[Rfam]
RNA: Mason-Pfizer monkey virus packaging signal
RNA sequence: UGGCGCCCAACGUGGGGCCUGGAUACUGGGGAUAACGUGAGGGACACGAUGGAGAAAAAGGGUUGCGCACCUGCUCAAAUAAUUCGGAGACGCCACGGGAGCCUGCUGCGACCGAGCCAAAGGUAAGUUGGUCGUUCAAUCAUGGGGCAAGAAUUAAGUCAGCAUCAGAUGUAUGUAAUACAGUUAAAAGAAGCUCUACAGGCAAGAGGAGUAAAGGUUAAAACUGAGGAUUUAUUUCAUUCCUUUGAUUUUGUAAAGGACAUUUGUUCCU
Numbered sequence: 001u002g003g004c005g006c007c008c009a010a011c012g013u014g015g016g017g018c019c020u021g022g023a024u025a026c027u028g029g030g031g032a033u034a035a036c037g038u039g040a041g042g043g044a045c046a047c048g049a050u051g052g053a054g055a056a057a058a059a060g061g062g063u064u065g066c067g068c069a070c071c072u073g074c075u076c077a078a079a080u081a082a083u084u085c086g087g088a089g090a091c092g093c094c095a096c097g098g099g100a101g102c103c104u105g106c107u108g109c110g111a112c113c114g115a116g117c118c119a120a121a122g123g124u125a126a127g128u129u130g131g132u133c134g135u136u137c138a139a140u141c142a143u144g145g146g147g148c149a150a151g152a153a154u155u156a157a158g159u160c161a162g163c164a165u166c167a168g169a170u171g172u173a174u175g176u177a178a179u180a181c182a183g184u185u186a187a188a189a190g191a192a193g194c195u196c197u198a199c200a201g202g203c204a205a206g207a208g209g210a211g212u213a214a215a216g217g218u219u220a221a222a223a224c225u226g227a228g229g230a231u232u233u234a235u236u237u238c239a240u241u242c243c244u245u246u247g248a249u250u251u252u253g254u255a256a257a258g259g260a261c262a263u264u265u266g267u268u269c270c271u
Stems, first nucleotide, its partner, number of pairs: 006031003012026003036048003091114002094110001096108003128150003133147001135146004155198002158194002206246004211241001215233005256271001258269004